The family of this 112-nucleotide sequence from Arabis nemorensis is "small nucleolar RNA snoR126". A search with the family's covariance model found it, with a score of 79 bits. Its family is annotated with RNA processing and nucleolus in the Gene Ontology.

[Rfam]
RNA sequence: AGGCGAUGAUGACAACAAAACAUUUCUCGAUACUGAAAAUUACUCGAGAGACCAAUAAAAAAUCCUCUUGUAAUCUUUCAUGAUGUUUGUUAUUUGUGCGUGUCUGAGCCUU
Numbered sequence: 001a002g003g004c005g006a007u008g009a010u011g012a013c014a015a016c017a018a019a020a021c022a023u024u025u026c027u028c029g030a031u032a033c034u035g036a037a038a039a040u041u042a043c044u045c046g047a048g049a050g051a052c053c054a055a056u057a058a059a060a061a062a063u064c065c066u067c068u069u070g071u072a073a074u075c076u077u078u079c080a081u082g083a084u085g086u087u088u089g090u091u092a093u094u095u096g097u098g099c100g101u102g103u104c105u106g107a108g109c110c111u112u
Stems, first nucleotide, its partner, number of pairs: 001111004